[Rfam]
RNA sequence: AAAAUGGACCCAAAGGUUUUGGUAUUUCCAUAUAAAAUAUAAUAGGAAUAAUACUAGAAUUGACAUUUU
Numbered sequence: 001a002a003a004a005u006g007g008a009c010c011c012a013a014a015g016g017u018u019u020u021g022g023u024a025u026u027u028c029c030a031u032a033u034a035a036a037a038u039a040u041a042a043u044a045g046g047a048a049u050a051a052u053a054c055u056a057g058a059a060u061u062g063a064c065a066u067u068u069u
Base pairs, nucleotide, nucleotide: 001069002068003067004066005065006064010022011021012020013019014018023050024049025048026047027046028045
Rfam assigns this 69-nucleotide RNA sequence from Pythium oligandrum to the family "Mitochondrion-encoded tmRNA". By type it is a non-coding RNA gene. The family has 11 seed sequences and 97 matches in Rfam 15.1.